[Rfam]
RNA sequence: UCGAUACACUAGGGGUGCUCGAAAGGGCUGUGAUGAGAACAUUUUGUUCCGAUCCCUCAUUACCCGAUCCAGGUAAUACUGGCGUGGGGAAGUGUGGUGACGCAUCA
Numbered sequence: 001u002c003g004a005u006a007c008a009c010u011a012g013g014g015g016u017g018c019u020c021g022a023a024a025g026g027g028c029u030g031u032g033a034u035g036a037g038a039a040c041a042u043u044u045u046g047u048u049c050c051g052a053u054c055c056c057u058c059a060u061u062a063c064c065c066g067a068u069c070c071a072g073g074u075a076a077u078a079c080u081g082g083c084g085u086g087g088g089g090a091a092g093u094g095u096g097g098u099g100a101c102g103c104a105u106c107a
Stems, first nucleotide, its partner, number of pairs: 006095005011057004016051001017028004035050001037048002063088004069082004
The record is a 107-nucleotide sequence from Jeotgalibacillus campisalis, which matches "TPP riboswitch aptamer (THI element)" in Rfam. The source organism's lineage runs through Bacteria, Bacillota, Bacilli, Caryophanaceae and Jeotgalibacillus. Rfam links the family to the GO term thiamine pyrophosphate binding. The match comes from Rfam's covariance-model search (63 bits).